The family of this 93-nucleotide RNA sequence from Egicoccus halophilus is "Bacterial small signal recognition particle RNA". A search with the family's covariance model found it, with a score of 51 bits. The base pairs follow the family's consensus structure, which is taken from published work. Gene Ontology terms of the family: SRP-dependent cotranslational protein targeting to membrane, signal sequence recognition and signal recognition particle, plasma membrane targeting.
[Rfam]
RNA sequence: GGCGUCCGUCGUGACGUCCCCCGGUGAACCGGGUCAGGACCGAGAGGUAGCAGCCCUAAGCCGUUCUCGGACGGGUGCGAGCCGGACGUCCGU
Numbered sequence: 001g002g003c004g005u006c007c008g009u010c011g012u013g014a015c016g017u018c019c020c021c022c023g024g025u026g027a028a029c030c031g032g033g034u035c036a037g038g039a040c041c042g043a044g045a046g047g048u049a050g051c052a053g054c055c056c057u058a059a060g061c062c063g064u065u066c067u068c069g070g071a072c073g074g075g076u077g078c079g080a081g082c083c084g085g086a087c088g089u090c091c092g093u
Stems, first nucleotide, its partner, number of pairs: 001090005009080003012075001015073005022063004031056004039048003